Shown here is a 92-nucleotide sequence from Paenirhizobium daejeonense, a member of the family "Rhizobiales sRNA Atu_Ti1". The literature on the family includes a 2012 paper in RNA Biol by Wilms et al., "Deep sequencing uncovers numerous small RNAs on all four replicons of the plant pathogen Agrobacterium tumefaciens". The family's RNA type in Rfam is small RNA. A search with the family's covariance model found it, with a score of 78 bits.
RNA sequence: GUCCACUCAGCGGCGGACCAGAGCCAGAGGCCUGCCAUGGCCAAGGCUGCAGCCGGCCGAUAACGCGUUGUCAUGACGAUGAGGCCGGCUGC
Numbered sequence: 001g002u003c004c005a006c007u008c009a010g011c012g013g014c015g016g017a018c019c020a021g022a023g024c025c026a027g028a029g030g031c032c033u034g035c036c037a038u039g040g041c042c043a044a045g046g047c048u049g050c051a052g053c054c055g056g057c058c059g060a061u062a063a064c065g066c067g068u069u070g071u072c073a074u075g076a077c078g079a080u081g082a083g084g085c086c087g088g089c090u091g092c
Stems, first nucleotide, its partner, number of pairs: 001018004023047003031039001049092010064081002069076001